[Rfam]
RNA sequence: AUGUACUGAGUACUGCGAAGAAGGGGGGAUAAACAAAACGCCCACAUAAGCGGGCGUUGUUGUUGAUA
Number, nucleotide and partner (000 for none) at each position: 001a000002u000003g000004u017005a000006c015007u000008g000009a000010g000011u000012a000013c000014u000015g006016c000017g004018a000019a000020g000021a000022a000023g000024g000025g000026g000027g000028g000029a000030u000031a000032a064033a063034c000035a061036a060037a058038a057039c056040g055041c054042c053043c052044a000045c000046a000047u000048a000049a000050g000051c000052g043053g042054g041055c040056g039057u038058u037059g000060u036061u035062g000063u033064u032065g000066a000067u000068a000
Rfam assigns this 68-nucleotide RNA sequence from Salmonella enterica to the family "Salmonella enterica sRNA STnc350". It is annotated as a small RNA. The sequence is in the family's curated seed alignment. Pairs were carried over by alignment from the consensus structure, which was predicted with CMfinder.